Shown here is a 61-nucleotide sequence from Nostoc minutum, a member of the family "Nitrogen stress-induced RNA 1". Pairs were carried over by alignment from the consensus structure. The family's RNA type in Rfam is small RNA.
RNA sequence: UGGUAGAUGCACCUUGAUCUUCAACUCCCCUAGUCGGUUUAUGCCUGCUAGGUUUUUUUAU
Numbered sequence: 001u002g003g004u005a006g007a008u009g010c011a012c013c014u015u016g017a018u019c020u021u022c023a024a025c026u027c028c029c030c031u032a033g034u035c036g037g038u039u040u041a042u043g044c045c046u047g048c049u050a051g052g053u054u055u056u057u058u059u060a061u
Stems, first nucleotide, its partner, number of pairs: 002013003028052001030051005036045002
On this family, see Ionescu et al., J Mol Biol 2010: "Heterocyst-specific transcription of NsiR1, a non-coding RNA encoded in a tandem array of direct repeats in cyanobacteria".